[Rfam]
RNA: Burkholderia RNA 11
Organism: Paraburkholderia humisilvae
RNA sequence: GCAAUCUGAAGCUCGCGCGCGAGCAACGGACCGUGUUUCUGAGCCUGCUCGGCAUUUCGUGGCUAUGGUUUGUCGGCGCGACCUUUCUGUCGUCGUUUUUCCGUUUCGCGAAGGAGGUGCUU
Dot-bracket structure: .........(((..(..((.(((((........))))).))..)..))).(((((.((.(......((..((.(((((.((....))))))).))..))............).)).))))).